[Rfam]
RNA: Y RNA-like
Organism: Halocynthiibacter styelae
RNA sequence: CUGACGAAUGCAGGGUGGAACUACAUUCUUAAUGUCGUGGUCGUGGGUUCGACUCCCACCUCUGCUGCCAUAGCAGGGUAGCUCAGAUGGUAGAGCGCGUAAUGUUUCACCUUUUCCUUGUCGUCAGGGA
Numbered sequence: 001c002u003g004a005c006g007a008a009u010g011c012a013g014g015g016u017g018g019a020a021c022u023a024c025a026u027u028c029u030u031a032a033u034g035u036c037g038u039g040g041u042c043g044u045g046g047g048u049u050c051g052a053c054u055c056c057c058a059c060c061u062c063u064g065c066u067g068c069c070a071u072a073g074c075a076g077g078g079u080a081g082c083u084c085a086g087a088u089g090g091u092a093g094a095g096c097g098c099g100u101a102a103u104g105u106u107u108c109a110c111c112u113u114u115u116c117c118u119u120g121u122c123g124u125c126a127g128g129g130a
Base pairs, nucleotide, nucleotide: 002126003125004124005123006122007121013111015110016109017108018107019106020105036099037098038097043059044058045057046056047055050090060078061077062076063075064074065073066072067071081096082095083094084093